[Rfam]
RNA sequence: CCAAUGACCCCGAGAUGCUGGCGGACCCCCGACCUGGCAGCAUCCCGGGGUCUUCCA
Numbered sequence: 001c002c003a004a005u006g007a008c009c010c011c012g013a014g015a016u017g018c019u020g021g022c023g024g025a026c027c028c029c030c031g032a033c034c035u036g037g038c039a040g041c042a043u044c045c046c047g048g049g050g051u052c053u054u055c056c057a
Base pairs, nucleotide, nucleotide: 004054007051008050009049010048011047012046014044015043016042017041018040019039020038022036